[Rfam]
Nucleotides: 403
Base pairs, nucleotide, nucleotide: 018159019158020157021156022155023154024153025152026091027090028089029088030087031086033084034083035082036079037076038075039074040073042070044067045066046065047064048063049062051060052059053058099151100150101149102148103147106140107139108138110136111135112134113133114132173283177281178278179277180276181275182274194267195266196265197264200263290396291395292394293391294390295389296388297387306380307379308378309377310376313374314373315372356366357365358364359363
Number, partner (000 for none) and nucleotide at each position: 001000c002000u003000c004000a005000u006000c007000a008000c009000a010000a011000c012000a013000a014000a015000c016000c017000c018159a019158g020157a021156u022155c023154u024153g025152u026091g027090u028089c029088c030087a031086g032000c033084a034083g035082u036079c037076c038075u039074g040073a041000u042070c043000c044067a045066a046065c047064u048063a049062g050000a051060g052059u053058a054000u055000u056000c057000g058053u059052g060051c061000u062049c063048u064047g065046g066045u067044u068000g069000u070042g071000u072000u073040u074039c075038g076037g077000u078000u079036g080000u081000u082035a083034u084033u085000g086031c087030u088029g089028g090027a091026c092000a093000g094000c095000u096000c097000g098000a099151c100150g101149a102148u103147u104000c105000a106140u107139g108138g109000a110136g111135c112134c113133a114132u115000c116000a117000a118000g119000g120000a121000u122000u123000a124000c125000c126000c127000c128000u129000c130000a131000a132114a133113u134112g135111g136110u137000g138108u139107c140106a141000a142000u143000u144000u145000c146000c147103g148102g149101u150100c151099g152025a153024c154023a155022g156021a157020u158019c159018u160000c161000a162000g163000a164000g165000a166000g167000a168000a169000c170000c171000u172000c173283a174000g175000c176000g177281g178278c179277c180276c181275a182274g183000u184000u185000u186000u187000u188000c189000c190000u191000u192000u193000u194267u195266g196265c197264c198000u199000u200263g201000u202000g203000c204000g205000a206000a207000a208000u209000g210000g211000a212000a213000u214000u215000u216000a217000a218000c219000a220000c221000u222000c223000u224000g225000c226000c227000u228000u229000g230000a231000g232000c233000u234000c235000c236000c237000u238000c239000c240000c241000c242000g243000u244000u245000u246000c247000g248000a249000c250000g251000g252000a253000c254000u255000g256000g257000u258000g259000a260000a261000u262000u263200c264197g265196g266195u267194a268000a269000g270000g271000u272000g273000g274182c275181u276180g277179g278178g279000u280000u281177c282000c283173u284000u285000c286000u287000g288000a289000g290396g291395g292394c293391g294390u295389c296388a297387u298000a299000u300000u301000c302000c303000a304000c305000c306380u307379c308378c309377c310376u311000u312000u313374a314373c315372c316000g317000a318000u319000c320000u321000u322000g323000g324000u325000c326000c327000c328000u329000u330000u331000u332000c333000c334000a335000a336000u337000u338000a339000c340000u341000u342000g343000g344000g345000g346000a347000a348000g349000g350000g351000a352000u353000u354000g355000u356366g357365g358364c359363c360000g361000u362000c363359g364358g365357c366356u367000g368000a369000u370000g371000a372315g373314g374313u375000u376310a377309g378308g379307g380306a381000a382000a383000a384000a385000c386000c387297a388296u389295g390294a391293c392000c393000u394292g395291c396290c397000a398000a399000c400000a401000u402000a403000u
Shown here is a 403-nucleotide sequence from Histoplasma capsulatum, a member of the family "A. fumigatus sRNA Afu_309".
The organism belongs to Histoplasma capsulatum, within Eukaryota.
The match comes from Rfam's covariance-model search (223 bits).